[Rfam]
RNA: mir-216 microRNA precursor family
Organism: Acanthochromis polyacanthus
RNA sequence: AUCCAGAUAAAUCUCAGCUGGCAACUGUGAGCUUCUAGCGUCUCACAGUGUCCGCUGAGGUUCACCUGAAC
Numbered sequence: 001a002u003c004c005a006g007a008u009a010a011a012u013c014u015c016a017g018c019u020g021g022c023a024a025c026u027g028u029g030a031g032c033u034u035c036u037a038g039c040g041u042c043u044c045a046c047a048g049u050g051u052c053c054g055c056u057g058a059g060g061u062u063c064a065c066c067u068g069a070a071c
Stems, first nucleotide, its partner, number of pairs: 004068003010062008020053002023049001026047006